RNA: Actinobacteria sRNA Ms_IGR-5
RNA sequence: ACACAAGGAAGGAGGUGGUCCGCGAAAUUGAGUACUUCAUGGACAUGUGAGGUGGCUGCGCGCUAGCUGCAGUGGCUCGGAAGAGCUGGCGAUCACGCGCGCUAGCGAAUUCCACGCAGUCACCCGGCCCCCGAGCUCCCGGUCUGUCCAACCGGGGAAAAGGCUCGGGGGCCGCUCUAU
Numbered sequence: 001a002c003a004c005a006a007g008g009a010a011g012g013a014g015g016u017g018g019u020c021c022g023c024g025a026a027a028u029u030g031a032g033u034a035c036u037u038c039a040u041g042g043a044c045a046u047g048u049g050a051g052g053u054g055g056c057u058g059c060g061c062g063c064u065a066g067c068u069g070c071a072g073u074g075g076c077u078c079g080g081a082a083g084a085g086c087u088g089g090c091g092a093u094c095a096c097g098c099g100c101g102c103u104a105g106c107g108a109a110u111u112c113c114a115c116g117c118a119g120u121c122a123c124c125c126g127g128c129c130c131c132c133g134a135g136c137u138c139c140c141g142g143u144c145u146g147u148c149c150a151a152c153c154g155g156g157g158a159a160a161a162g163g164c165u166c167g168g169g170g171g172c173c174g175c176u177c178u179a180u
Stems, first nucleotide, its partner, number of pairs: 015059005061107007069100002074094002125174013138156006